[Rfam]
RNA sequence: GGGGCCCCCAAAAAGGGGGAAAUUUUUUUUUUUUUUUUUAAAAAAUUUUUUGGGAAAGGAAAAAAAAAAAAAAGGGGGGGGAAAAAACCCUUUAAAAAAAAAAAAAAAACCCCCCCUUUUUUAAAAAAAAAAAUUUUUUCUUUUAUUUUUUUUGGGAAACGGGCCCGGGGGAAACGGGCCCGGG
Number, nucleotide and partner (000 for none) at each position: 001g000002g000003g000004g000005c000006c000007c156008c155009c154010a153011a144012a143013a142014a141015g140016g139017g000018g000019g138020a137021a136022a135023u000024u074025u073026u072027u071028u070029u069030u068031u000032u000033u000034u064035u063036u000037u000038u062039u000040a000041a000042a000043a000044a000045a000046u000047u000048u000049u000050u000051u000052g000053g000054g000055a000056a000057a000058g000059g000060a000061a000062a038063a035064a034065a000066a000067a000068a030069a029070a028071a027072a026073a025074g024075g000076g000077g000078g000079g000080g000081g000082a000083a000084a000085a000086a000087a000088c000089c000090c000091u125092u124093u123094a000095a122096a121097a120098a119099a118100a117101a000102a000103a000104a000105a000106a000107a000108a000109a000110c000111c000112c000113c000114c000115c000116c000117u100118u099119u098120u097121u096122u095123a093124a092125a091126a000127a000128a000129a000130a000131a000132a000133a000134u000135u022136u021137u020138u019139u016140c015141u014142u013143u012144u011145a000146u000147u000148u000149u000150u000151u000152u000153u010154g009155g008156g007157a000158a000159a000160c182161g181162g180163g179164c178165c177166c176167g000168g000169g000170g000171g000172a000173a000174a000175c000176g166177g165178g164179c163180c162181c161182g160183g000184g000